[Rfam]
RNA sequence: ACGGGUAAGGGAGAUGGAGUUCCUCCCGUAACCGCCCUCAGGGCUGAUGACUCCUGCCGAAGU
Dot-bracket structure: .........[[[[..((((((.]]]].......(((.....)))....)))))).........

Rfam assigns this 63-nucleotide RNA from Acidomonas methanolica to the family "Fluoride riboswitch aptamer (crcB RNA motif)". The match comes from Rfam's covariance-model search (58 bits). The base pairs follow the family's consensus structure, which is taken from published work. The organism belongs to Acidomonas methanolica, within Bacteria.